[Rfam]
RNA sequence: CGCGCAGCAGGACGGAAAGACCCCGUGACCUUUACUAUAGCUUUGUAUUGGUGUUCGGUGUGGCUUGUGUAGGAUAGGUGGGAGACUUUGAAGCGUGGACGCCAGUUCAUGUGGAGUCAUUGUUGAAAUACCACUCUGGUCACUCUGGAUAUCUAACUUCGAACCGUGAUCCGGUUCAGGGACAGUGCAUGGUGGGUAGUUUAACUGGGGCGGUUGCCUCCCAAAAAGUAACGGAGGCGCCCAAAGGUUCCCUCAACCUGGUUGGUAAUCAGGUGGCGAGUGUAAGUGCACAAGGGAGCUUGACUGUGAGACUGACAGGUCGAGCAGGGACGAAAGUCGGGACUAGUGAUCCGGCAGUGGCUUGUGGAAGCGCUGUCGCUCAACGGAUAAAAGGUACCUCGGGGAUAACAGGCUGAUCUUGCCCAAGAGUCCAUAUCGACGGCAUGGUUUGGCACCUCGAUGUCGGCUCGUCGCAUCCUGGGGCUGGAGUAGGUCCCAAGGGUUGGGCUGUUCGCCCAUUAAAGCGGUACGCGAGCUGGGUUUAGAACGUCGUGAGACAGUUCGGUCCCUAUCCGCUGCGCGCGCA
Dot-bracket structure: ((((((((.(((.((......((((.((((((.((((...((.((((..(((((((((.((((((.(.........(((((..(((......((((((((....))))))))...)))............)))))).)))))).)))))))))...(((.((((((.....))))))))).....)))).))....))))..((((.....))))((((((...........))))))(.((....((((((((.((((((.......))))))...))((......))....))))))....((((..(((......)))..)))).(((....))).))..........(((((((.((........))))))))).....)......)))))..).))))........(((.(((.((((...((.......))...)))).))..))))..........(((((((((((..((.((((((......))))))...)).(((((.....))))).....)))))..)..)))).).....(((((((....))).))))....))..)))))))))))....
RNA: Bacterial large subunit ribosomal RNA, nucleotides 2254 to 2839
Organism: Microbacterium lemovicicum